Rfam assigns this 122-nucleotide RNA sequence from Mesorhizobium sp. YM1C-6-2 to the family "Rhizobiales sRNA Atu_C8". It is annotated as a small RNA. On this family, see Wilms et al., RNA Biol 2012: "Deep sequencing uncovers numerous small RNAs on all four replicons of the plant pathogen Agrobacterium tumefaciens". Lineage of the source: Bacteria > Pseudomonadati > Pseudomonadota > Hyphomicrobiales > Mesorhizobium.
RNA sequence: CAUGAAAACGACACUCAUUCUCGUAGUAGGAAUGCGCAUGGGCAAGGCGGUGUGACCGCCGGGCGACAGCACCCCAUGCGCAAAUGCCAAGGCUCCCUCGGGGGCCUUUUUUGUUACCUGGA
Numbered sequence: 001c002a003u004g005a006a007a008a009c010g011a012c013a014c015u016c017a018u019u020c021u022c023g024u025a026g027u028a029g030g031a032a033u034g035c036g037c038a039u040g041g042g043c044a045a046g047g048c049g050g051u052g053u054g055a056c057c058g059c060c061g062g063g064c065g066a067c068a069g070c071a072c073c074c075c076a077u078g079c080g081c082a083a084a085u086g087c088c089a090a091g092g093c094u095c096c097c098u099c100g101g102g103g104g105c106c107u108u109u110u111u112u113g114u115u116a117c118c119u120g121g122a
Stems, first nucleotide, its partner, number of pairs: 009026001029118002032115001033082010046060005063070002090107007